About this RNA
This 116-nucleotide RNA sequence from Jaculus jaculus belongs to the Rfam family "ODC internal ribosome entry site (IRES)". Rfam links the family to the GO term ribosome binding. A reference for the family is Pyronnet et al. (2005), "Alternative splicing facilitates internal ribosome entry on the ornithine decarboxylase mRNA", Cell Mol Life Sci.
RNA sequence: GGUUCCACUGCUGCUCCAAGGACACACAAUUUGAAAUUCCUUGGUAAUUGCCUUUGAGAAGGUAGAGAUAAUUUCUUUAUUUCCAUCUCCUAGUUCCAUAGGCACAUUGAGAAACC
Numbered sequence: 001g002g003u004u005c006c007a008c009u010g011c012u013g014c015u016c017c018a019a020g021g022a023c024a025c026a027c028a029a030u031u032u033g034a035a036a037u038u039c040c041u042u043g044g045u046a047a048u049u050g051c052c053u054u055u056g057a058g059a060a061g062g063u064a065g066a067g068a069u070a071a072u073u074u075c076u077u078u079a080u081u082u083c084c085a086u087c088u089c090c091u092a093g094u095u096c097c098a099u100a101g102g103c104a105c106a107u108u109g110a111g112a113a114a115c116c
Stems, first nucleotide, its partner, number of pairs: 005067001010063003015059002017056005023050002026041001029038001072114006081104001083102002

Taxonomically the source falls in Jaculus (Eukaryota, Eutheria, Euarchontoglires, Dipodidae). A search with the family's covariance model found it, with a score of 54 bits.